[Rfam]
A member of the RNA family "caulobacter sRNA CC2171" from Microvirga sp. VF16, 170 nucleotides long. The match comes from Rfam's covariance-model search (79 bits). On this family, see Landt et al., Mol Microbiol 2008: "Small non-coding RNAs in Caulobacter crescentus". The base pairs follow the family's consensus structure, which was predicted with RNAalifold.
RNA sequence: CAACAGUGAAAGGAGGUGAUCCAGUGUCUCAUUGUCAUACCCUACGGUCCCCGGUUGCCGUGACCUGGAUCUUGGCCUCUGCCGAGAUUGGUGCGUAACGCACGUCAAGGAGCGGCUCCUCAAGGGCCGUGGAACCGACAAUGGAAAGGCCGCCUCGCAAGGGCGGCCUU
Dot-bracket structure: ..............((....)).......(((((((......((.(((((................))))).))..((((..((...(((.....)))....))..)..)))....(((.(.......).)))...)))))))..(((((((((.......)))))))))